This 89-nucleotide RNA from Dryobates pubescens belongs to the Rfam family "Small nucleolar RNA SNORD93". A search with the family's covariance model found it, with a score of 60 bits.
[Rfam]
RNA sequence: UGGCCGAGGAUGAGAACAGCCAUCUGAUUCCUUGCAUACUUUCAGUGAUACGCAAAAAAUCUGAUGGAUUAAAGGAUUUUCUGAGGCCA
Numbered sequence: 001u002g003g004c005c006g007a008g009g010a011u012g013a014g015a016a017c018a019g020c021c022a023u024c025u026g027a028u029u030c031c032u033u034g035c036a037u038a039c040u041u042u043c044a045g046u047g048a049u050a051c052g053c054a055a056a057a058a059a060u061c062u063g064a065u066g067g068a069u070u071a072a073a074g075g076a077u078u079u080u081c082u083g084a085g086g087c088c089a
Stems, first nucleotide, its partner, number of pairs: 002088004
The family's RNA type in Rfam is C/D-box small nucleolar RNA. The family has 17 seed sequences and 491 matches in Rfam 15.1.